[Rfam]
This 150-nucleotide RNA from Pseudomonas entomophila belongs to the Rfam family "PrrF RNA". Rfam links the family to the GO term sRNA-mediated gene silencing. The source organism's lineage runs through Bacteria, Pseudomonadota, Pseudomonadales, Pseudomonas and Pseudomonas entomophila. It is annotated as a small RNA. From the family's description: PrrF RNA is a small RNA involved in iron homeostasis and is found exclusively in Pseudomonas species.
RNA sequence: UUGACUACGUAAUGAGAAUCGUUAUGAUUAUCACAGCUGGUCGCGAGACUGGUUGGGUAACCUGAAAGCUCCCUGGUUCGGACUCUCAGAUUAUCUCCUCAUCAGGCUAAUCACGGUUAUUGACCCGGCAACUUGCCGGGUCUUUUUUUG
Numbered sequence: 001u002u003g004a005c006u007a008c009g010u011a012a013u014g015a016g017a018a019u020c021g022u023u024a025u026g027a028u029u030a031u032c033a034c035a036g037c038u039g040g041u042c043g044c045g046a047g048a049c050u051g052g053u054u055g056g057g058u059a060a061c062c063u064g065a066a067a068g069c070u071c072c073c074u075g076g077u078u079c080g081g082a083c084u085c086u087c088a089g090a091u092u093a094u095c096u097c098c099u100c101a102u103c104a105g106g107c108u109a110a111u112c113a114c115g116g117u118u119a120u121u122g123a124c125c126c127g128g129c130a131a132c133u134u135g136c137c138g139g140g141u142c143u144u145u146u147u148u149u150g
Base pairs, nucleotide, nucleotide: 034055035054036053037052038051039050040049041048042047062089063088064087065086067084068083069080097106098105099104122142123141124140125139126138127137128136129135